The record is a 65-nucleotide RNA from Salix brachista, which matches "Small nucleolar RNA U49" in Rfam. A reference for the family is Brown et al. (2001), "Multiple snoRNA gene clusters from Arabidopsis", RNA. By type it is a C/D-box small nucleolar RNA. The base pairs follow the family's consensus structure, which was predicted with CMfinder. The match comes from Rfam's covariance-model search (66 bits). Rfam links the family to the GO terms RNA processing and nucleolus.
RNA sequence: UCCCUAUGAGGAAGCAAUCCCUUUAGAUAGGAAGUGCCGUAUGACACUUUAUCAGCAGCGGAUCG
Numbered sequence: 001u002c003c004c005u006a007u008g009a010g011g012a013a014g015c016a017a018u019c020c021c022u023u024u025a026g027a028u029a030g031g032a033a034g035u036g037c038c039g040u041a042u043g044a045c046a047c048u049u050u051a052u053c054a055g056c057a058g059c060g061g062a063u064c065g
Stems, first nucleotide, its partner, number of pairs: 014059002031050006